[Rfam]
RNA: mir-184 microRNA precursor family
Organism: Cnephaeus nilssonii
RNA sequence: GCGGCCACGUCCCCUUAUCACUUCUCCAGCCGGCUGUGCGACCGAGUGCUGGACGGAGAACUGAUAAGGGCAGGUGGCUGC
Numbered sequence: 001g002c003g004g005c006c007a008c009g010u011c012c013c014c015u016u017a018u019c020a021c022u023u024c025u026c027c028a029g030c031c032g033g034c035u036g037u038g039c040g041a042c043c044g045a046g047u048g049c050u051g052g053a054c055g056g057a058g059a060a061c062u063g064a065u066a067a068g069g070g071c072a073g074g075u076g077g078c079u080g081c
Base pairs, nucleotide, nucleotide: 012070013069014068015067016066017065018064019063020062022060023059024058025057026056027055030052031051